[Rfam]
RNA sequence: UGUGGCCUAUGAUGAGUCUGCAGAAUUAUUGCCUACAUUGUUUGAUUAUAAUCUGUGAUAACAAUCUGCAUGAAUUCUGAGGUCUCU
Numbered sequence: 001u002g003u004g005g006c007c008u009a010u011g012a013u014g015a016g017u018c019u020g021c022a023g024a025a026u027u028a029u030u031g032c033c034u035a036c037a038u039u040g041u042u043u044g045a046u047u048a049u050a051a052u053c054u055g056u057g058a059u060a061a062c063a064a065u066c067u068g069c070a071u072g073a074a075u076u077c078u079g080a081g082g083u084c085u086c087u
Base pairs, nucleotide, nucleotide: 002086004084005083006082007081
RNA: Small nucleolar RNA SNORD34
Organism: Asparagus officinalis